[Rfam]
RNA sequence: CAACAUAGUAGGGGGAGCUUGUGUGACAGGCAGAGAGGAAGGUAGACCUUCGACCCUUGAACCUGAUGCGGAUAAUGCCGCUGUAGGGAGUCACAGAAAAUUCUACUU
Numbered sequence: 001c002a003a004c005a006u007a008g009u010a011g012g013g014g015g016a017g018c019u020u021g022u023g024u025g026a027c028a029g030g031c032a033g034a035g036a037g038g039a040a041g042g043u044a045g046a047c048c049u050u051c052g053a054c055c056c057u058u059g060a061a062c063c064u065g066a067u068g069c070g071g072a073u074a075a076u077g078c079c080g081c082u083g084u085a086g087g088g089a090g091u092c093a094c095a096g097a098a099a100a101u102u103c104u105a106c107u108u
Stems, first nucleotide, its partner, number of pairs: 006096001008094002011057004017031005038051005062087004068081004
Dot-bracket structure: .....(.((.((((..(((((.....)))))......(((((....)))))..))))....((((..((((......))))..)))).....)).)............
Shown here is a 108-nucleotide RNA sequence from Oscillibacter sp. 1-3, a member of the family "TPP riboswitch aptamer (THI element)". A search with the family's covariance model found it, with a score of 60 bits. The source organism's lineage runs through Bacteria, Bacillati, Bacillota, Clostridia and Oscillibacter.